[Rfam]
RNA sequence: AUGAAAACAAGGGGAGAGAUCCUUUUACAGGACGCCGAAGGAGCAAGCAUAAUUAUGUGAAUCUCUCAGGCAAAAAAGACUCUUGUUGGACG
Numbered sequence: 001a002u003g004a005a006a007a008c009a010a011g012g013g014g015a016g017a018g019a020u021c022c023u024u025u026u027a028c029a030g031g032a033c034g035c036c037g038a039a040g041g042a043g044c045a046a047g048c049a050u051a052a053u054u055a056u057g058u059g060a061a062u063c064u065c066u067c068a069g070g071c072a073a074a075a076a077a078g079a080c081u082c083u084u085g086u087u088g089g090a091c092g
Stems, first nucleotide, its partner, number of pairs: 006087008020032004034071003037067002041065003047058002
RNA: Glycine riboswitch aptamer
Organism: Jeotgalibacillus sp. S-D1